RNA sequence: GUCAUGGCCGGCUCUGGUUCGCUUGGUGCAGGUCGGGAACGCUUCGAUCCGGCGGCGGGACGAGCCGGAUCCCGCCUUGCACCAACUGAAUCGGAGGCGGAGACGCGA
Numbered sequence: 001g002u003c004a005u006g007g008c009c010g011g012c013u014c015u016g017g018u019u020c021g022c023u024u025g026g027u028g029c030a031g032g033u034c035g036g037g038a039a040c041g042c043u044u045c046g047a048u049c050c051g052g053c054g055g056c057g058g059g060a061c062g063a064g065c066c067g068g069a070u071c072c073c074g075c076c077u078u079g080c081a082c083c084a085a086c087u088g089a090a091u092c093g094g095a096g097g098c099g100g101a102g103a104c105g106c107g108a
Base pairs, nucleotide, nucleotide: 013095014094017091018090019089020088023085024084025083026082027081028080029079030078031077032076034074035073036072037071038070040068